[Rfam]
RNA sequence: GAUUGUCGAAGGAUAAGUUUAAGACCUUAAUUCACAAUC
Numbered sequence: 001g002a003u004u005g006u007c008g009a010a011g012g013a014u015a016a017g018u019u020u021a022a023g024a025c026c027u028u029a030a031u032u033c034a035c036a037a038u039c
Base pairs, nucleotide, nucleotide: 001039002038003037004036005035006034008033009028010027011026012025